[Rfam]
RNA sequence: ACGCUGAAAAACAUAACCCAUAAAUGCUAGUAGUAACAGAAACCACCUCCUUGGCUCGCGCGAUCUCCCUCGUGCGAGCCAUUUU
Number, nucleotide and partner (000 for none) at each position: 001a000002c000003g000004c000005u000006g000007a000008a000009a000010a000011a000012c000013a000014u000015a000016a000017c000018c000019c000020a000021u000022a000023a000024a000025u000026g000027c000028u000029a000030g000031u000032a000033g000034u000035a000036a000037c000038a051039g050040a000041a048042a000043c000044c000045a000046c000047c000048u041049c000050c039051u038052u000053g080054g079055c078056u077057c076058g075059c074060g073061c072062g071063a070064u000065c000066u000067c000068c000069c000070u063071c062072g061073u060074g059075c058076g057077a056078g055079c054080c053081a000082u000083u000084u000085u000
CyaR/Rye RNA: an 85-nucleotide RNA sequence from Pluralibacter gergoviae. The source organism's lineage runs through Bacteria, Pseudomonadati, Gammaproteobacteria, Enterobacterales and Pluralibacter. Rfam describes the family as follows. This sRNA was originally identified in a large scale screen of E. coli. It was shown to bind Hfq and called RyeE. This sRNA has since been characterised as a post-transcriptional regulator of the 18 kDa OmpX porin in Salmonella. Phylogenetic and mutational analyses suggest that a conserved RNA hairpin of this sRNA which features a C-rich apical loop, acts to sequester the Shine-Dalgarno sequence of ompX mRNA and inhibits translational initiation. The expression of this sRNA has been shown to be tightly controlled by the cyclic AMP receptor protein, CRP and has been renamed CyaR (cyclic AMP-activated RNA). CyaR appears to be highly conserved amongst enterobacteria and the cyaR gene is frequently located downstream of the yegQ gene. It is annotated as a small RNA.